[Rfam]
RNA sequence: UCUGCAGCUUGACAACGAGAGAGAGCACGCCUGUCCUCACCCAUGCAAAGCGACCGUGGCUGUGUACUAGCGUGCUCCCUCUCGGUGUCAUCCACUU
Numbered sequence: 001u002c003u004g005c006a007g008c009u010u011g012a013c014a015a016c017g018a019g020a021g022a023g024a025g026c027a028c029g030c031c032u033g034u035c036c037u038c039a040c041c042c043a044u045g046c047a048a049a050g051c052g053a054c055c056g057u058g059g060c061u062g063u064g065u066a067c068u069a070g071c072g073u074g075c076u077c078c079c080u081c082u083c084g085g086u087g088u089c090a091u092c093c094a095c096u097u
Stems, first nucleotide, its partner, number of pairs: 010090005016084002020080002023077001025075006033067002
A member of the RNA family "MIR535 microRNA precursor family" from Colocasia esculenta, 97 nucleotides long. Pairs were carried over by alignment from the consensus structure, which was predicted with RNAalifold. Taxonomically the source falls in Colocasia (Eukaryota, Viridiplantae, Euphyllophyta, Aroideae). Its family is annotated with RISC complex and miRNA-mediated post-transcriptional gene silencing in the Gene Ontology. It scores 81 bits against the family's covariance model.